[Rfam]
RNA sequence: CGUCACCAUCCGCCGGCAGGAGCGGGGAACCCAUUCGCCGGGACGGUCACGUCCCUUGGGGUGCAGUCGGUGGCACGAGCCGCCGACCGGACAUCUCCAGUCCGAACCCGACAGCUAACCCCGCAGGCGCUGGAGAGAGCUCAU
Number, nucleotide and partner (000 for none) at each position: 001c126002g000003u000004c000005a000006c020007c019008a000009u000010c000011c000012g000013c000014c000015g000016g000017c000018a000019g007020g006021a000022g124023c123024g122025g121026g120027g119028a000029a000030c000031c000032c058033a057034u000035u000036c000037g000038c000039c000040g000041g000042g000043a000044c000045g000046g000047u000048c000049a000050c000051g000052u000053c000054c000055c000056u000057u033058g032059g109060g108061g107062u000063g000064c000065a000066g000067u086068c085069g084070g083071u082072g081073g000074c000075a000076c000077g000078a000079g000080c000081c072082g071083c070084c069085g068086a067087c000088c000089g103090g102091a101092c100093a000094u000095c000096u000097c000098c000099a000100g092101u091102c090103c089104g000105a000106a000107c061108c060109c059110g000111a000112c000113a000114g000115c000116u000117a000118a000119c027120c026121c025122c024123g023124c022125a000126g001127g000128c000129g000130c000131u000132g000133g000134a000135g000136a000137g000138a000139g000140c000141u000142c000143a000144u000